[Rfam]
RNA sequence: UACUUAUCAAGAGAGGCAAAGGGAUCUGGCCCUAAGAAGCCCGGCAACCUGCUUAGAAGAGUAAGGUGCUAACUCCAGCAAAAUGUAUACCAUUUUGAGAGAUAAGGU
Numbered sequence: 001u002a003c004u005u006a007u008c009a010a011g012a013g014a015g016g017c018a019a020a021g022g023g024a025u026c027u028g029g030c031c032c033u034a035a036g037a038a039g040c041c042c043g044g045c046a047a048c049c050u051g052c053u054u055a056g057a058a059g060a061g062u063a064a065g066g067u068g069c070u071a072a073c074u075c076c077a078g079c080a081a082a083a084u085g086u087a088u089a090c091c092a093u094u095u096u097g098a099g100a101g102a103u104a105a106g107g108u
Stems, first nucleotide, its partner, number of pairs: 003106006013042001015041003021032003026078004043070004048066002050063004074100001079097006
Source information:
Rfam assigns this 108-nucleotide sequence from Bacillus sp. 165 to the family "SAM riboswitch aptamer (S box leader)". Taxonomically the source falls in Bacillus (Bacteria, Bacillota, Bacilli, Bacillaceae). Rfam describes the family as follows. The SAM riboswitch is found upstream of a number of genes which code for proteins involved in methionine or cysteine biosynthesis in Gram-positive bacteria.